[Rfam]
RNA sequence: AAAAGCGUGCAAAUUCAAUACAUUGCAUGGGCCAUGUAGGCCU
Numbered sequence: 001a002a003a004a005g006c007g008u009g010c011a012a013a014u015u016c017a018a019u020a021c022a023u024u025g026c027a028u029g030g031g032c033c034a035u036g037u038a039g040g041c042c043u
Stems, first nucleotide, its partner, number of pairs: 006029001008027005